Shown here is a 231-nucleotide sequence from Methylomusa anaerophila, a member of the family "Group II catalytic intron D1-D4-6". Rfam links the family to the GO term Group II intron splicing. About the family: Group II introns are found in rRNA, tRNA and mRNA of organelles in fungi, plants and protists, and also in mRNA in bacteria. Taxonomically the source falls in Methylomusa (Bacteria, Bacillati, Selenomonadales, Sporomusaceae).
RNA sequence: GGAAUCCCGCCUGGGAAGGAAUAGCCAACCACUCAGUAUCCAGCCUUGGGACUGAAGCGGUAACGCCAAGUCUAAGCGUAGGCAGGAAAGGUAGUAGGCCGAAAGCGUAGCUGAAGAUGUUGAGCCCCGAAAUCCCUAAAUGGGUUAGUCGAUGCCGUGGAACCAGCAGAAGACAACAUUGGAUGUAGCGAUAAGGGCGAGCUAUAUUCAACCCCCCGGGGUCAAAGAUCU
Numbered sequence: 001g002g003a004a005u006c007c008c009g010c011c012u013g014g015g016a017a018g019g020a021a022u023a024g025c026c027a028a029c030c031a032c033u034c035a036g037u038a039u040c041c042a043g044c045c046u047u048g049g050g051a052c053u054g055a056a057g058c059g060g061u062a063a064c065g066c067c068a069a070g071u072c073u074a075a076g077c078g079u080a081g082g083c084a085g086g087a088a089a090g091g092u093a094g095u096a097g098g099c100c101g102a103a104a105g106c107g108u109a110g111c112u113g114a115a116g117a118u119g120u121u122g123a124g125c126c127c128c129g130a131a132a133u134c135c136c137u138a139a140a141u142g143g144g145u146u147a148g149u150c151g152a153u154g155c156c157g158u159g160g161a162a163c164c165a166g167c168a169g170a171a172g173a174c175a176a177c178a179u180u181g182g183a184u185g186u187a188g189c190g191a192u193a194a195g196g197g198c199g200a201g202c203u204a205u206a207u208u209c210a211a212c213c214c215c216c217c218g219g220g221g222u223c224a225a226a227g228a229u230c231u
Base pairs, nucleotide, nucleotide: 011036012035013034014033015032018030019029022200024198025197039087040086041085043083044082045081046080047078048077049073050072051071052070053069057066058065059064121225122223124222125221126220127219128218129217142216143215144214148174149173150172153168154167155166179211180210181209182208183207184206185205186204187203188202189201